[Rfam]
RNA sequence: UACUAGCCCAAUGCUCUUCCAACUGAGCUACGCGGUCAGGACGGUUCGAGUAGCUCAGUUGGAAGAGCAUUGGGCUAGUA
Numbered sequence: 001u002a003c004u005a006g007c008c009c010a011a012u013g014c015u016c017u018u019c020c021a022a023c024u025g026a027g028c029u030a031c032g033c034g035g036u037c038a039g040g041a042c043g044g045u046u047c048g049a050g051u052a053g054c055u056c057a058g059u060u061g062g063a064a065g066a067g068c069a070u071u072g073g074g075c076u077a078g079u080a
Stems, first nucleotide, its partner, number of pairs: 001080003006075006013068008023058009

This 80-nucleotide RNA from Paramuricea clavata belongs to the Rfam family "mir-130 microRNA precursor family". The base pairs follow the family's consensus structure, which was predicted with PFOLD. On this family, see Lagos-Quintana et al., Curr Biol 2002: "Identification of tissue-specific microRNAs from mouse". Rfam links the family to the GO terms RISC complex and miRNA-mediated post-transcriptional gene silencing. A search with the family's covariance model found it, with a score of 45 bits. NCBI's taxonomy places the organism under Eukaryota, Metazoa, Anthozoa, Plexauridae, Paramuricea.